RNA sequence: GGCAGAUGAUGGCUUUUUCUCACGAUGGUCUGCGGAUGCCACUGGGCAGUGCCGAUAACGCCAAAGGCUCAGCUGAUGCCAGAAU
Numbered sequence: 001g002g003c004a005g006a007u008g009a010u011g012g013c014u015u016u017u018u019c020u021c022a023c024g025a026u027g028g029u030c031u032g033c034g035g036a037u038g039c040c041a042c043u044g045g046g047c048a049g050u051g052c053c054g055a056u057a058a059c060g061c062c063a064a065a066g067g068c069u070c071a072g073c074u075g076a077u078g079c080c081a082g083a084a085u
Base pairs, nucleotide, nucleotide: 001080002079003078004077